[Rfam]
A member of the RNA family "SAM riboswitch aptamer (S box leader)" from Koleobacter methoxysyntrophicus, 111 nucleotides long.
RNA sequence: CUCUUAUCGAGAGCAGGUGGAGGGAAUGGGCCCAAUGAAACCCGGCAACCGGCCUGUAAUUCAGGCAGCGGUGCUAAUUCCCACAGAAUUCCUGAUUCUGGGAGAUGAGAG
Dot-bracket structure: ((((((((....(..(((...(((..[[[[)))......))))((((.((.(((.........)))...))))))...(]]]]((((((.....))))))..)))))))))

Source information: Taxonomically the source falls in Koleobacter (Bacteria, Bacillota, Koleobacterales, Koleobacteraceae).